[Rfam]
RNA sequence: CACAUCCUGCGGUGUGCGUAACUCAUUUAUGUCUAAAACCGAUGUUAGUAAUAAGGAAGCUCAACAUUUAGUUAUUAUAAUCAAGCCUUCCUUGUGGAGGAAGAUGUAUGGUAACUGUGAGGGCAUCCACCUGCGAGUAGCGGGUUUUUGGACAUUUAGGAGGAACGGCACGUGCGGGGGUUUU
Numbered sequence: 001c002a003c004a005u006c007c008u009g010c011g012g013u014g015u016g017c018g019u020a021a022c023u024c025a026u027u028u029a030u031g032u033c034u035a036a037a038a039c040c041g042a043u044g045u046u047a048g049u050a051a052u053a054a055g056g057a058a059g060c061u062c063a064a065c066a067u068u069u070a071g072u073u074a075u076u077a078u079a080a081u082c083a084a085g086c087c088u089u090c091c092u093u094g095u096g097g098a099g100g101a102a103g104a105u106g107u108a109u110g111g112u113a114a115c116u117g118u119g120a121g122g123g124c125a126u127c128c129a130c131c132u133g134c135g136a137g138u139a140g141c142g143g144g145u146u147u148u149u150g151g152a153c154a155u156u157u158a159g160g161a162g163g164a165a166c167g168g169c170a171c172g173u174g175c176g177g178g179g180g181u182u183u184u
Stems, first nucleotide, its partner, number of pairs: 002182001005179007012171004017167003031153004035148006055128003059124004066118001069117007081104002086100005
Dot-bracket structure: .(..(((((((((((.(((...........((((((((((..............(((.((((...(..(((((((.....((...(((((.....)))))..))......))))))))..)))).)))..............)))))).))))...........))))))).)))))))..)..

This 184-nucleotide RNA from Bacillus cytotoxicus belongs to the Rfam family "6S / SsrS RNA". A reference for the family is Wassarman and Storz (2000), "6S RNA regulates E. coli RNA polymerase activity", Cell. The family's consensus secondary structure is taken from published work. The sequence is in the family's curated seed alignment. Lineage of the source: Bacteria > Caryophanales > Bacillaceae > Bacillus > Bacillus cytotoxicus.